Small nucleolar RNA Z13/snr52: a 101-nucleotide RNA from Sclerotinia sclerotiorum. The organism belongs to Sclerotinia sclerotiorum, within Eukaryota. Its family is annotated with RNA processing and nucleolus in the Gene Ontology. Rfam classes the family as a C/D-box small nucleolar RNA. The base pairs follow the family's consensus structure, which was predicted with PFOLD.
RNA sequence: AUUAUUCAAUAUGAUGAAAUAUUCCGGAUGUUAAACACAUUAUACUCCGAGAGCGCAAAACCCAUGUGGAGAUUUCCGUUGCCUUCCUUCUGAUUGUCUAU
Numbered sequence: 001a002u003u004a005u006u007c008a009a010u011a012u013g014a015u016g017a018a019a020u021a022u023u024c025c026g027g028a029u030g031u032u033a034a035a036c037a038c039a040u041u042a043u044a045c046u047c048c049g050a051g052a053g054c055g056c057a058a059a060a061c062c063c064a065u066g067u068g069g070a071g072a073u074u075u076c077c078g079u080u081g082c083c084u085u086c087c088u089u090c091u092g093a094u095u096g097u098c099u100a101u
Stems, first nucleotide, its partner, number of pairs: 003100002025078004